[Rfam]
RNA sequence: CCGUGCUAGAUGGGGAGCUAGCGGUGCCCUGUAACCUGCAAUCCGCUUUAGCAGGAUCGAUGUCUAACCGAGGCUUUAUUACGUAUAGUCUGACCUAGAAAAGUGAUGUUGAUAAUUGGGUCCCACGCAACGGGAAUUCAUGAACCUCGUCAGGUCCGGAAGGAAGCAGCGAUAAGUGAAACCUCUCGUGUGCCGUGGAAAAACCUGGUUUGAGUUAACUAUCUAGGUAACGUAUAUGUAAUACUGUCAGAGUUAGAUGCACGG
Numbered sequence: 001c002c003g004u005g006c007u008a009g010a011u012g013g014g015g016a017g018c019u020a021g022c023g024g025u026g027c028c029c030u031g032u033a034a035c036c037u038g039c040a041a042u043c044c045g046c047u048u049u050a051g052c053a054g055g056a057u058c059g060a061u062g063u064c065u066a067a068c069c070g071a072g073g074c075u076u077u078a079u080u081a082c083g084u085a086u087a088g089u090c091u092g093a094c095c096u097a098g099a100a101a102a103g104u105g106a107u108g109u110u111g112a113u114a115a116u117u118g119g120g121u122c123c124c125a126c127g128c129a130a131c132g133g134g135a136a137u138u139c140a141u142g143a144a145c146c147u148c149g150u151c152a153g154g155u156c157c158g159g160a161a162g163g164a165a166g167c168a169g170c171g172a173u174a175a176g177u178g179a180a181a182c183c184u185c186u187c188g189u190g191u192g193c194c195g196u197g198g199a200a201a202a203a204c205c206u207g208g209u210u211u212g213a214g215u216u217a218a219c220u221a222u223c224u225a226g227g228u229a230a231c232g233u234a235u236a237u238g239u240a241a242u243a244c245u246g247u248c249a250g251a252g253u254u255a256g257a258u259g260c261a262c263g264g
Stems, first nucleotide, its partner, number of pairs: 001264006009058003012030004017025003035055005063257006072248003078242010091229002095226005103219002105216003114210008123198005128190002131188005137180005147172004155164003
Shown here is a 264-nucleotide RNA sequence from Clostridium bornimense, a member of the family "Bacterial large signal recognition particle RNA". Rfam describes the family as follows. The signal recognition particle (SRP) is a universally conserved ribonucleoprotein involved in the co-translational targeting of proteins to membranes. Rfam links the family to the GO terms SRP-dependent cotranslational protein targeting to membrane, signal sequence recognition and signal recognition particle, plasma membrane targeting. Taxonomically the source falls in Clostridium (Bacteria, Bacillota, Clostridia, Clostridiaceae). The family's consensus secondary structure is taken from published work.